MIR845_2 microRNA precursor family: a 132-nucleotide RNA from Vitis vinifera. A search with the family's covariance model found it, with a score of 122 bits.
Nucleotides: 132
Stems, first nucleotide, its partner, number of pairs: 009122008022109002025106009049087001054081001057078002061074003
Number, partner (000 for none) and nucleotide at each position: 001000a002000g003000a004000g005000u006000g007000c008000a009122c010121a011120u012119u013118a014117a015116u016115u017000a018000u019000c020000u021000c022109u023108a024000a025106g026105g027104c028103c029102a030101u031100g032099g033098g034000a035000u036000a037000a038000a039000c040000a041000a042000a043000a044000a045000c046000c047000c048000c049087u050000a051000u052000a053000a054081a055000a056000c057078c058077a059000a060000g061074u062073u063072a064000a065000c066000a067000c068000a069000c070000c071000c072063u073062a074061g075000a076000a077058u078057g079000g080000c081054u082000c083000u084000a085000a086000a087049a088000c089000g090000a091000u092000u093000a094000c095000u096000a097000a098033c099032c100031u101030a102029u103028g104027g105026c106025u107000c108023u109022g110000a111000u112000a113000c114000u115016a116015a117014u118013u119012g120011a121010u122009g123000g124000g125000a126000a127000a128000a129000c130000c131000c132000c

Background:
The base pairs follow the family's consensus structure, which was predicted with WAR.